The record is a 199-nucleotide sequence, which matches "Group II catalytic intron D1-D4-5" in Rfam.
Group II introns are found in rRNA, tRNA and mRNA of organelles in fungi, plants and protists, and also in mRNA in bacteria.
Rfam's curators put it in the seed alignment.
For this family Rfam cites "Group II introns: structure and catalytic versatility of large natural ribozymes" (Lehmann and Schmidt, Crit Rev Biochem Mol Biol, 2003).
Rfam links the family to the GO term Group II intron splicing.

[Rfam]
RNA sequence: UAGAACUGAUAUUCCGAGCGGUGGAAUGAUGGGGUAACGCCCUGAAACGCCCCCUUUAAAACUGCGGCAGGCGAUAAAACUUGUGACAGUUUUGUGGUCUGAAGCCCGCGGAAGUCGGCAGAGAGCCGCCCAAACAGGUCAAGCUGCGGAAAGCUGUCCAGAGGUGGACGGUGCGGCCUAUAUGCCGGAGGUCUAAAAU
Numbered sequence: 001u002a003g004a005a006c007u008g009a010u011a012u013u014c015c016g017a018g019c020g021g022u023g024g025a026a027u028g029a030u031g032g033g034g035u036a037a038c039g040c041c042c043u044g045a046a047a048c049g050c051c052c053c054c055u056u057u058a059a060a061a062c063u064g065c066g067g068c069a070g071g072c073g074a075u076a077a078a079a080c081u082u083g084u085g086a087c088a089g090u091u092u093u094g095u096g097g098u099c100u101g102a103a104g105c106c107c108g109c110g111g112a113a114g115u116c117g118g119c120a121g122a123g124a125g126c127c128g129c130c131c132a133a134a135c136a137g138g139u140c141a142a143g144c145u146g147c148g149g150a151a152a153g154c155u156g157u158c159c160a161g162a163g164g165u166g167g168a169c170g171g172u173g174c175g176g177c178c179u180a181u182a183u184g185c186c187g188g189a190g191g192u193c194u195a196a197a198a199u
Base pairs, nucleotide, nucleotide: 018053020051021050022049023048031043032042033041034040054191055190056189057188064109065108066107067106068101069100070099071098072097074095075094076093077092078091079090080089081088116187117186118185119184120183125177126176127175128174129173130149131148137145138144153172154171155170156169157168158167159166160165